Shown here is a 102-nucleotide RNA sequence from Frankliniella occidentalis, a member of the family "mir-282 microRNA precursor family". Taxonomically the source falls in Frankliniella (Eukaryota, Opisthokonta, Eumetabola, Thripinae). The match comes from Rfam's covariance-model search (59 bits). A reference for the family is Li et al. (2009), "Direct sequencing and expression analysis of a large number of miRNAs in Aedes aegypti and a multi-species survey of novel mosquito miRNAs", BMC Genomics.

RNA sequence: GUGGGAACGAGACAUAGCCUCUCCUAGGCUUUGUCUGUCGGCCCUCCCGGGCCUCCCAGUACCCCAGACAUAGCCUACCAGAGGCUAGGUCCAGUUCCCGGC
Number, nucleotide and partner (000 for none) at each position: 001g000002u000003g000004g000005g000006a000007a000008c000009g000010a000011g000012a090013c089014a000015u087016a086017g085018c084019c083020u082021c000022u000023c000024c000025u000026a000027g075028g074029c073030u072031u000032u070033g069034u068035c067036u066037g000038u000039c000040g000041g000042c000043c000044c000045u000046c000047c000048c000049g000050g000051g000052c000053c000054u000055c000056c000057c000058a000059g000060u000061a000062c000063c000064c000065c000066a036067g035068a034069c033070a032071u000072a030073g029074c028075c027076u000077a000078c000079c000080a000081g000082a020083g019084g018085c017086u016087a015088g000089g013090u012091c000092c000093a000094g000095u000096u000097c000098c000099c000100g000101g000102c000